[Rfam]
Shown here is a 76-nucleotide RNA sequence from Oryzias latipes, a member of the family "mir-9/mir-79 microRNA precursor family".
On this family, see Lagos-Quintana et al., Science 2001: "Identification of novel genes coding for small expressed RNAs".
RNA sequence: UAGUUUUUAUCUUUGGUUAUCUAGCUGUAUGAGUUGGUGUAAUAUCAUAAAGCUAGAGAACCGAAUGUAGAAACUG
Numbered sequence: 001u002a003g004u005u006u007u008u009a010u011c012u013u014u015g016g017u018u019a020u021c022u023a024g025c026u027g028u029a030u031g032a033g034u035u036g037g038u039g040u041a042a043u044a045u046c047a048u049a050a051a052g053c054u055a056g057a058g059a060a061c062c063g064a065a066u067g068u069a070g071a072a073a074c075u076g
Base pairs, nucleotide, nucleotide: 001076002075003074004073005072007070008069009068010067012065013064014063015062016061017060018059020057021056022055023054024053025052026051028049029048030047031046032045